[Rfam]
RNA: c-di-GMP-I riboswitch aptamer
Organism: Anaerovirgula multivorans
RNA sequence: CAACGAUAAUGGCAAACCGUCUGAAAGGGUGGGACGCAAAGCCACAGGAUCUAAAGUAGAUUUUUCUACUAUGAUAGCCGAGCUACCGAA
Numbered sequence: 001c002a003a004c005g006a007u008a009a010u011g012g013c014a015a016a017c018c019g020u021c022u023g024a025a026a027g028g029g030u031g032g033g034a035c036g037c038a039a040a041g042c043c044a045c046a047g048g049a050u051c052u053a054a055a056g057u058a059g060a061u062u063u064u065u066c067u068a069c070u071a072u073g074a075u076a077g078c079c080g081a082g083c084u085a086c087c088g089a090a
Stems, first nucleotide, its partner, number of pairs: 012037002017032006040084003045080001047079002049075003056069004